The record is a 160-nucleotide RNA from Sapajus apella, which matches "Small nucleolar RNA SNORA58" in Rfam. Rfam's curators write: ACA52 is a member of the H/ACA class of snoRNA that guide the sites of modification of uridines to pseudouridines. It is annotated as an H/ACA-box small nucleolar RNA. The family is grouped with related families in Rfam's "SNORA44 clan". NCBI's taxonomy places the organism under Eukaryota, Euteleostomi, Eutheria, Cebinae, Sapajus. It scores 79 bits against the family's covariance model.
RNA sequence: GGGCAUACCUUUAGACCUUGCCUGACUGUGGUCAUGGCCAGGCAGAGGGGACUGGCAAAGGCAGUAUUCUUACAUACUAUUGUAUGUAAGAAUAAUUUGAAAUUCCUGCCAGUUUUAGCCAGUAAUCAGUGGCUGGAUAAAUUGCAGGACUCUAACAUUC
Number, nucleotide and partner (000 for none) at each position: 001g000002g000003g087004c086005a085006u084007a083008c082009c000010u000011u000012u000013a000014g000015a000016c047017c000018u045019u044020g043021c042022c041023u040024g039025a000026c000027u000028g000029u000030g000031g000032u000033c000034a000035u000036g000037g000038c000039c024040a023041g022042g021043c020044a019045g018046a000047g016048g000049g000050g000051a000052c000053u000054g000055g000056c000057a000058a000059a000060g000061g000062c000063a000064g000065u000066a000067u000068u000069c000070u000071u000072a000073c000074a000075u000076a000077c000078u000079a000080u000081u000082g008083u007084a006085u005086g004087u003088a000089a000090g000091a000092a000093u000094a000095a000096u000097u000098u000099g153100a000101a151102a000103u000104u149105c000106c000107u146108g145109c144110c000111a000112g000113u000114u000115u000116u000117a000118g000119c136120c135121a134122g133123u132124a000125a000126u000127c000128a000129g000130u000131g000132g123133c122134u121135g120136g119137a000138u000139a000140a000141a000142u000143u000144g109145c108146a107147g000148g000149a104150c000151u101152c000153u099154a000155a000156c000157a000158u000159u000160c000